[Rfam]
RNA sequence: AAAAAGGGUCUGUUGGCUAAAUAUGCCACUCUGCCUGCGUGGCAAAUGCUGUAUGGCUAUUAAGACAUAUGGCCGACAUAAUUUUGUGGAACUUUAUCGGGUUGGCUCCUUGACCGACCCUCAAAA
Numbered sequence: 001a002a003a004a005a006g007g008g009u010c011u012g013u014u015g016g017c018u019a020a021a022u023a024u025g026c027c028a029c030u031c032u033g034c035c036u037g038c039g040u041g042g043c044a045a046a047u048g049c050u051g052u053a054u055g056g057c058u059a060u061u062a063a064g065a066c067a068u069a070u071g072g073c074c075g076a077c078a079u080a081a082u083u084u085u086g087u088g089g090a091a092c093u094u095u096a097u098c099g100g101g102u103u104g105g106c107u108c109c110u111u112g113a114c115c116g117a118c119c120c121u122c123a124a125a126a
Stems, first nucleotide, its partner, number of pairs: 008077003012073001014028004029048001032044004049072007094124002099120005105115001107113002
Shown here is a 126-nucleotide sequence from Solanum lycopersicum, a member of the family "U11 spliceosomal RNA". Its Rfam clan is "U1 clan". The source organism's lineage runs through Eukaryota, Magnoliopsida, Solanaceae, Solaneae and Solanum subgen. Lycopersicon. The family's RNA type in Rfam is spliceosomal small nuclear RNA.